[Rfam]
Nucleotides: 535
Base pairs, nucleotide, nucleotide: 002498003497004496010495012366014364015363019359020358021357257353258352259351260350261348262347265344269341270340271339272338275319276318279315280314281313282312283311284310285309286308290301291300292299327334328333371412372411373410374409375408376407381405385401386400387399388398423494424493425492427486428485430470431469432468435465436464437463438462439461440460442458444457445456446455474481475480500527501526502525509520510519511518512517
Number, partner (000 for none) and nucleotide at each position: 001000g002498c003497g004496g005000u006000u007000a008000a009000a010495a011000a012366g013000c014364u015363c016000g017000u018000a019359g020358u021357u022000g023000g024000a025000u026000c027000u028000c029000a030000g031000u032000u033000c034000c035000a036000g037000a038000c039000g040000a041000g042000u043000a044000g045000u046000g047000c048000a049000u050000c051000u052000a053000c054000c055000c056000g057000a058000u059000g060000c061000g062000a063000c064000g065000g066000c067000u068000c069000g070000g071000a072000c073000u074000g075000a076000a077000c078000a079000u080000c081000a082000u083000g084000c085000c086000g087000g088000u089000u090000c091000u092000u093000u094000c095000u096000u097000g098000g099000u100000g101000c102000a103000c104000u105000u106000c107000a108000u109000u110000g111000u112000g113000u114000g115000c116000c117000u118000c119000g120000a121000g122000a123000u124000g125000g126000c127000c128000g129000g130000u131000g132000c133000u134000u135000u136000u137000a138000c139000u140000u141000u142000g143000a144000a145000a146000a147000a148000a149000u150000u151000a152000g153000a154000g155000u156000g157000c158000u159000c160000a161000a162000c163000g164000c165000a166000g167000g168000c169000g170000a171000g172000u173000c174000g175000c176000c177000u178000g179000a180000a181000u182000a183000a184000a185000c186000u187000u188000g189000c190000a191000u192000g193000g194000a195000a196000u197000a198000a199000u200000a201000g202000a203000a204000c205000a206000a207000g208000a209000c210000c211000u212000c213000g214000u215000u216000u217000c218000u219000g220000u221000u222000c223000u224000g225000u226000u227000g228000g229000u230000u231000u232000u233000u234000g235000g236000a237000a238000u239000a240000c241000g242000a243000g244000g245000u246000a247000a248000u249000g250000a251000u252000u253000a254000a255000g256000a257353g258352g259351g260350a261348c262347g263000g264000a265344c266000g267000g268000g269341g270340g271339c272338a273000u274000u275319c276318g277000u278000a279315u280314u281313g282312c283311g284310g285309c286308g287000c288000u289000a290301g291300a292299g293000g294000u295000g296000a297000a298000a299292u300291u301290c302000u303000u304000g305000g306000a307000c308286c309285g310284u311283c312282g313281c314280a315279a316000g317000a318276c319275g320000a321000a322000c323000u324000a325000c326000u327334g328333c329000g330000a331000a332000a333328g334327c335000a336000u337000u338272u339271g340270c341269c342000a343000a344265g345000a346000a347262u348261g349000u350260u351259u352258u353257c354000u355000u356000u357021g358020a359019u360000c361000a362000a363015g364014a365000a366012c367000g368000a369000a370000a371412g372411u373410c374409a375408g376407a377000g378000g379000u380000u381405c382000g383000a384000a385401g386400g387399c388398g389000a390000u391000c392000a393000g394000a395000u396000a397000c398388c399387g400386c401385c402000c403000u404000a405381g406000u407376u408375c409374u410373g411372a412371c413000c414000a415000u416000a417000a418000a419000c420000g421000a422000u423494g424493c425492c426000a427486a428485c429000c430470a431469g432468c433000g434000a435465u436464c437463c438462g439461c440460c441000u442458g443000a444457g445456u446455u447000a448000c449000u450000c451000a452000a453000a454000u455446g456445a457444c458442u459000c460440g461439g462438c463437g464436g465435g466000c467000a468432g469431c470430u471000u472000c473000c474481g475480g476000g477000a478000a479000a480475c481474c482000a483000a484000a485428g486427u487000a488000u489000u490000u491000g492425g493424g494423u495010u496004c497003c498002g499000g500527g501526g502525g503000a504000a505000g506000u507000a508000u509520g510519g511518u512517u513000g514000c515000a516000a517512a518511g519510c520509u521000g522000a523000a524000a525502c526501u527500u528000a529000a530000a531000g532000g533000a534000a535000u